[Rfam]
Record summary:
A member of the RNA family "traJ-II RNA" from Lampropedia aestuarii, 97 nucleotides long.
RNA sequence: CGGCAAGAUGUGUGUUGUACCGGUACGGGCAUCGCCCGAACCUGUGCAUCACCGGCCUUAUUCGCUUCGCUCAACGUGCUUCUUGCUCUGCGAGGCU
Numbered sequence: 001c002g003g004c005a006a007g008a009u010g011u012g013u014g015u016u017g018u019a020c021c022g023g024u025a026c027g028g029g030c031a032u033c034g035c036c037c038g039a040a041c042c043u044g045u046g047c048a049u050c051a052c053c054g055g056c057c058u059u060a061u062u063c064g065c066u067u068c069g070c071u072c073a074a075c076g077u078g079c080u081u082c083u084u085g086c087u088c089u090g091c092g093a094g095g096c097u
Stems, first nucleotide, its partner, number of pairs: 002087007012052003016048002019045002024040001026038004055079002057076001064070002
NCBI's taxonomy places the organism under Bacteria, Pseudomonadota, Betaproteobacteria, Burkholderiales, Lampropedia.